Overview:
Bacterial small signal recognition particle RNA: a 99-nucleotide sequence from Gulbenkiania mobilis. The signal recognition particle (SRP) is a universally conserved ribonucleoprotein involved in the co-translational targeting of proteins to membranes. The family's RNA type in Rfam is non-coding RNA gene. The family is grouped with related families in Rfam's "SRP clan".
RNA sequence: GGCGGGUCUCCCCGCAUUGUGCAAUAGCGAACCUGGUCAGGUCCGGAAGGAAGCAGCCACAGUUAUUUCGCACAAGUGCCGGGGGUCAGGCUCGCCACC
Numbered sequence: 001g002g003c004g005g006g007u008c009u010c011c012c013c014g015c016a017u018u019g020u021g022c023a024a025u026a027g028c029g030a031a032c033c034u035g036g037u038c039a040g041g042u043c044c045g046g047a048a049g050g051a052a053g054c055a056g057c058c059a060c061a062g063u064u065a066u067u068u069c070g071c072a073c074a075a076g077u078g079c080c081g082g083g084g085g086u087c088a089g090g091c092u093c094g095c096c097a098c099c
Stems, first nucleotide, its partner, number of pairs: 004093005009085006015076001017075006023067006034059004042051003
Notes: Pairs were carried over by alignment from the consensus structure, which is taken from published work. Lineage of the source: Bacteria > Pseudomonadati > Betaproteobacteria > Chromobacteriaceae > Gulbenkiania.